[Rfam]
RNA sequence: AGCUUGCUGUGGUAAUCAGGGUCCAGUAAUAAAAAACCCCGUAUUCGGGGUUUUUUAUUAUCUGAAAUAUGACAAUUCAGAUAUUCACUGGGCUUUUGGCCCUUUUUUU
Numbered sequence: 001a002g003c004u005u006g007c008u009g010u011g012g013u014a015a016u017c018a019g020g021g022u023c024c025a026g027u028a029a030u031a032a033a034a035a036a037c038c039c040c041g042u043a044u045u046c047g048g049g050g051u052u053u054u055u056u057a058u059u060a061u062c063u064g065a066a067a068u069a070u071g072a073c074a075a076u077u078c079a080g081a082u083a084u085u086c087a088c089u090g091g092g093c094u095u096u097u098g099g100c101c102c103u104u105u106u107u108u109u
Stems, first nucleotide, its partner, number of pairs: 033054009090102004
RNA: Gammaprotebacteria rimP leader
Organism: Photobacterium profundum